[Rfam]
RNA sequence: CCACCCAUCACUCCUACUGAUUGAAUGGUCCGGUGAAGUGUUCGAAUCACGGCAACGUGGGCGGUUCGCUACCCACGAUGUCAUAAGAAGUCCACUGCACCUUAUCAUUUAGAGGAAGGAGAAGUCGUAACAAGGUUUCCGUAGGUGAACCUACAGAAGGAUCAUUG
Numbered sequence: 001c002c003a004c005c006c007a008u009c010a011c012u013c014c015u016a017c018u019g020a021u022u023g024a025a026u027g028g029u030c031c032g033g034u035g036a037a038g039u040g041u042u043c044g045a046a047u048c049a050c051g052g053c054a055a056c057g058u059g060g061g062c063g064g065u066u067c068g069c070u071a072c073c074c075a076c077g078a079u080g081u082c083a084u085a086a087g088a089a090g091u092c093c094a095c096u097g098c099a100c101c102u103u104a105u106c107a108u109u110u111a112g113a114g115g116a117a118g119g120a121g122a123a124g125u126c127g128u129a130a131c132a133a134g135g136u137u138u139c140c141g142u143a144g145g146u147g148a149a150c151c152u153a154c155a156g157a158a159g160g161a162u163c164a165u166u167g
Stems, first nucleotide, its partner, number of pairs: 001134001006127001009124001011121005017115002021111001023110007032101003037096004043090001047086001049084001051082004056077002059073002136159004141154005
Notes
Rfam assigns this 167-nucleotide part of an RNA from Gossypium schwendimanii to the family "Eukaryotic small subunit ribosomal RNA". NCBI's taxonomy places the organism under Eukaryota, Embryophyta, eudicotyledons, Pentapetalae, Gossypium. Its Rfam clan is "SSU clan". For this family Rfam cites "Crystal structure of the ribosome at 5.5 A resolution" (Yusupov et al., Science, 2001).